Annotation
Shown here is a 167-nucleotide RNA sequence from Marchantia polymorpha, a member of the family "U4 spliceosomal RNA". Rfam links the family to the GO terms U4 snRNP and spliceosomal tri-snRNP complex assembly. From the family's description: U4 small nuclear RNA (U4 snRNA) is a component of the major U2-dependent spliceosome. The family's consensus secondary structure is taken from published work. Clan: U4 clan. For this family Rfam cites "Crystal structure of the spliceosomal 15.5kD protein bound to a U4 snRNA fragment" (Vidovic et al., Mol Cell, 2000).

Nucleotides: 167
Base pairs, nucleotide, nucleotide: 021053023051024050025049027048028047029046035043036042037041077129078128079127081125082124083123142167143166144165145164
Number, partner (000 for none) and nucleotide at each position: 001000a002000u003000c004000u005000u006000u007000g008000c009000g010000c011000u012000u013000g014000g015000g016000g017000c018000a019000a020000u021053g022000a023051c024050g025049c026000a027048g028047u029046u030000a031000g032000u033000g034000a035043g036042g037041u038000g039000a040000a041037a042036c043035c044000g045000a046029g047028a048027c049025g050024c051023g052000c053021c054000a055000a056000u057000u058000g059000c060000u061000g062000g063000u064000u065000g066000a067000a068000a069000a070000c071000u072000a073000u074000u075000u076000c077129c078128u079127u080000a081125a082124g083123a084000a085000a086000g087000a088000u089000g090000a091000a092000u093000a094000a095000a096000a097000u098000g099000g100000u101000a102000a103000u104000c105000u106000u107000u108000u109000a110000g111000g112000g113000a114000g115000a116000a117000a118000g119000g120000a121000u122000a123083u124082c125081u126000u127079a128078a129077g130000a131000a132000u133000c134000c135000u136000u137000g138000a139000c140000u141000g142167u143166c144165u145164u146000a147000c148000u149000c150000g151000u152000c153000u154000a155000a156000a157000u158000a159000a160000a161000g162000u163000c164145a165144a166143g167142a